Source information
Rfam assigns this 117-nucleotide RNA sequence from Dyella soli to the family "Xanthomonadaceae sRNA sX13". NCBI's taxonomy places the organism under Bacteria, Gammaproteobacteria, Lysobacterales, Rhodanobacteraceae, Dyella. A search with the family's covariance model found it, with a score of 52 bits. Rfam classes the family as a small RNA.
[Rfam]
Nucleotides: 117
Base pairs, nucleotide, nucleotide: 004013005012014039015038016037017036018035019034021032022031042077043076045074046071047070048069049068050067051066052063053062080112081111082110083109084108085107086106087105089103090102091101092100
Number, partner (000 for none) and nucleotide at each position: 001000a002000a003000c004013g005012g006000c007000a008000u009000c010000c011000a012005c013004c014039g015038g016037c017036u018035c019034a020000a021032c022031c023000a024000c025000c026000u027000c028000c029000c030000u031022g032021g033000g034019u035018g036017a037016g038015c039014c040000a041000c042077g043076g044000c045074g046071a047070g048069c049068g050067a051066a052063c053062c054000u055000c056000u057000c058000c059000c060000c061000u062053g063052g064000g065000u066051u067050u068049c069048g070047c071046u072000u073000c074045c075000a076043c077042c078000c079000c080112g081111g082110c083109c084108c085107c086106g087105a088000g089103g090102a091101u092100u093000c094000c095000c096000c097000c098000c099000u100092a101091a102090u103089c104000c105087u106086c107085g108084g109083g110082g111081c112080u113000u114000u115000u116000u117000u